Bacterial large subunit ribosomal RNA: a 437-nucleotide part of an RNA from Apibacter mensalis. The organism belongs to Apibacter, within Bacteria.
[Rfam]
RNA sequence: CUCCCCGAAAUGCAUUUAGGUGCAGCGUUAAGAGAAGUAUACUAGAGGUAGAGCUACUGAUUGGAUGCGGGGGUUUCACCGCCUACCAAAUCCUGACAAACUCCGAAUGCUAUUAUAUGUUUCUUAGCAGUGAGGGCAUGGGUGCUAAGGUCCAUGUCCGAGAGGGAAAGAACCCAGAGCAACAGCUAAGGUCCCGAAAUGUAUACUAAGUUGGACAAACGAGGUCAGACUGCCUGGACAGCUAGGAUGUUGGCUUGGAAGCAGCCAUUCAUUUAAAGAGUGCGUAACAGCUCACUAGUCGAGCGGUUUGGCAUGGAUAAUACUCGGGCAUAAGUAUACUACCGAAGCUAUGCGAAAUUUAAAAUUUCGGUAGGGGAGCAUUCUAUAUGCGCAGAAUCUUUAAGGUGACUUAAAGUGGAGCGUAUAGAAAAGAAAAU
Numbered sequence: 001c002u003c004c005c006c007g008a009a010a011u012g013c014a015u016u017u018a019g020g021u022g023c024a025g026c027g028u029u030a031a032g033a034g035a036a037g038u039a040u041a042c043u044a045g046a047g048g049u050a051g052a053g054c055u056a057c058u059g060a061u062u063g064g065a066u067g068c069g070g071g072g073g074u075u076u077c078a079c080c081g082c083c084u085a086c087c088a089a090a091u092c093c094u095g096a097c098a099a100a101c102u103c104c105g106a107a108u109g110c111u112a113u114u115a116u117a118u119g120u121u122u123c124u125u126a127g128c129a130g131u132g133a134g135g136g137c138a139u140g141g142g143u144g145c146u147a148a149g150g151u152c153c154a155u156g157u158c159c160g161a162g163a164g165g166g167a168a169a170g171a172a173c174c175c176a177g178a179g180c181a182a183c184a185g186c187u188a189a190g191g192u193c194c195c196g197a198a199a200u201g202u203a204u205a206c207u208a209a210g211u212u213g214g215a216c217a218a219a220c221g222a223g224g225u226c227a228g229a230c231u232g233c234c235u236g237g238a239c240a241g242c243u244a245g246g247a248u249g250u251u252g253g254c255u256u257g258g259a260a261g262c263a264g265c266c267a268u269u270c271a272u273u274u275a276a277a278g279a280g281u282g283c284g285u286a287a288c289a290g291c292u293c294a295c296u297a298g299u300c301g302a303g304c305g306g307u308u309u310g311g312c313a314u315g316g317a318u319a320a321u322a323c324u325c326g327g328g329c330a331u332a333a334g335u336a337u338a339c340u341a342c343c344g345a346a347g348c349u350a351u352g353c354g355a356a357a358u359u360u361a362a363a364a365u366u367u368c369g370g371u372a373g374g375g376g377a378g379c380a381u382u383c384u385a386u387a388u389g390c391g392c393a394g395a396a397u398c399u400u401u402a403a404g405g406u407g408a409c410u411u412a413a414a415g416u417g418g419a420g421c422g423u424a425u426a427g428a429a430a431a432g433a434a435a436a437u
Base pairs, nucleotide, nucleotide: 001378002377003376004375005374006373011024012023013022014021015020026130027128028127029126030125031124032123033122036121037118038117039116040115041114043112044111045110051104052102053101058098059097063093064092065091069087070086071084072083073082074081134159135158136157137156138155139154140153141152142151143150164175165174166173179353180352181351184349185348186347190343191342192341199340201339202338203337204336205335206334220315221314224312225311226310227309228308229307230306231305232304233303241299242298243297244296245295247272248271249270252266253265254264273277278293282291283290354368355367356366357365358364359363379432381429382428383427384426385425386424387423388422389421390420398415399414400413401412402411403410404409